[Rfam]
RNA sequence: AUUAUUCUUCCGGGGUCCAUUGAAGGAGAGUUCAUGUUGCGGUCCCUGUUAGAUUAAAAUCUGCAAAUCCUUCA
Numbered sequence: 001a002u003u004a005u006u007c008u009u010c011c012g013g014g015g016u017c018c019a020u021u022g023a024a025g026g027a028g029a030g031u032u033c034a035u036g037u038u039g040c041g042g043u044c045c046c047u048g049u050u051a052g053a054u055u056a057a058a059a060u061c062u063g064c065a066a067a068u069c070c071u072u073c074a
Stems, first nucleotide, its partner, number of pairs: 013046003017042002021074007028040001030038001050063005

The record is a 74-nucleotide RNA from Strongylocentrotus purpuratus, which matches "Mammalian CPEB3 ribozyme" in Rfam. It scores 48 bits against the family's covariance model. The base pairs follow the family's consensus structure, which is taken from published work.